[Rfam]
RNA sequence: AUGACAUGUAGCAUGCCCGUUGUGGAAUUACUCUGAUGUAUAUUGCUAUUUAAUUGCUUUUGGGUAACGGGGUGUUACAA
Numbered sequence: 001a002u003g004a005c006a007u008g009u010a011g012c013a014u015g016c017c018c019g020u021u022g023u024g025g026a027a028u029u030a031c032u033c034u035g036a037u038g039u040a041u042a043u044u045g046c047u048a049u050u051u052a053a054u055u056g057c058u059u060u061u062g063g064g065u066a067a068c069g070g071g072g073u074g075u076u077a078c079a080a
Stems, first nucleotide, its partner, number of pairs: 007079008016071006
Rfam assigns this 80-nucleotide sequence from Medicago truncatula to the family "MIR2617 microRNA precursor family". The family's consensus secondary structure was predicted with RNAalifold. Its family is annotated with miRNA-mediated post-transcriptional gene silencing and RISC complex in the Gene Ontology.